RNA sequence: CGACUACCAAACCCUAUCUCCGUCUCCACGUGGUAACCGCUGGGAGCUCUUUCUUACGGAAAAGCUGCAGACGGAGUAGG
Dot-bracket structure: ............(((((.((.(((.......)))..........((((.((((....)))).))))......)).)))))
RNA: drz-agam-1 ribozyme